Annotation: The record is a 77-nucleotide RNA from Nasonia vitripennis, which matches "mir-9/mir-79 microRNA precursor family" in Rfam. Pairs were carried over by alignment from the consensus structure, which was predicted with RNAalifold. NCBI's taxonomy places the organism under Eukaryota, Mandibulata, Allotriocarida, Pteromalidae, Nasonia.
RNA sequence: CGGACAUUUUCUUUGGUUAUCUAGCUGUAUGAGUUUGGUUGUACAUCAUAAAGCUAGGUUACCGGAGUUGAGAUCCU
Numbered sequence: 001c002g003g004a005c006a007u008u009u010u011c012u013u014u015g016g017u018u019a020u021c022u023a024g025c026u027g028u029a030u031g032a033g034u035u036u037g038g039u040u041g042u043a044c045a046u047c048a049u050a051a052a053g054c055u056a057g058g059u060u061a062c063c064g065g066a067g068u069u070g071a072g073a074u075c076c077u
Stems, first nucleotide, its partner, number of pairs: 002076003007071002011067007019059008028050005